[Rfam]
RNA sequence: UGCCCCGUUAUUCAGCAGACAGACACAACUUGCCAUGUGUCUGAAUUGAAAACGUGGCUAGAAGAGUAACAGGUUUUGCUUUCCUCGCUGUACAGUCAGUUGCAGUGGUGACAAUGAGACCUGUAACAGGU
Numbered sequence: 001u002g003c004c005c006c007g008u009u010a011u012u013c014a015g016c017a018g019a020c021a022g023a024c025a026c027a028a029c030u031u032g033c034c035a036u037g038u039g040u041c042u043g044a045a046u047u048g049a050a051a052a053c054g055u056g057g058c059u060a061g062a063a064g065a066g067u068a069a070c071a072g073g074u075u076u077u078g079c080u081u082u083c084c085u086c087g088c089u090g091u092a093c094a095g096u097c098a099g100u101u102g103c104a105g106u107g108g109u110g111a112c113a114a115u116g117a118g119a120c121c122u123g124u125a126a127c128a129g130g131u
Base pairs, nucleotide, nucleotide: 002058003057004056006054007053008052021042022041023040024039025038026037027036069124070123071122072121073120083110085108086107087106088105
Shown here is a 131-nucleotide RNA sequence from Rhinopomastus cyanomelas, a member of the family "Small nucleolar RNA SNORA1". Its family is annotated with RNA processing and nucleolus in the Gene Ontology. From the family's description: ACA1 is a member of the H/ACA class of snoRNA that guide the sites of modification of uridines to pseudouridines. Pairs were carried over by alignment from the consensus structure, which was predicted with PFOLD.